[Rfam]
The record is an 85-nucleotide sequence from Rodentibacter trehalosifermentans, which matches "sRNA-Xcc1" in Rfam. For this family Rfam cites "sRNA-Xcc1, an integron-encoded transposon- and plasmid-transferred trans-acting sRNA, is under the positive control of the key virulence regulators HrpG and HrpX of Xanthomonas campestris pathovar campestris" (Chen et al., RNA Biol, 2011).
RNA sequence: GUCGAGUGGGCGGAGAAUACAACACCCGAAAGGGGAAUAAUCCCAGCCGACUUACUGCGGUUUUCGAACCACUCGACACCCUCAA
Number, nucleotide and partner (000 for none) at each position: 001g077002u076003c075004g074005a073006g072007u071008g070009g069010g000011c000012g000013g044014a000015g042016a041017a000018u000019a000020c000021a000022a000023c000024a000025c034026c033027c032028g000029a000030a000031a000032g027033g026034g025035g000036a000037a000038u000039a000040a000041u016042c015043c000044c013045a062046g061047c060048c059049g058050a000051c000052u000053u000054a000055c000056u000057g000058c049059g048060g047061u046062u045063u000064u000065c000066g000067a000068a000069c009070c008071a007072c006073u005074c004075g003076a002077c001078a000079c000080c000081c000082u000083c000084a000085a000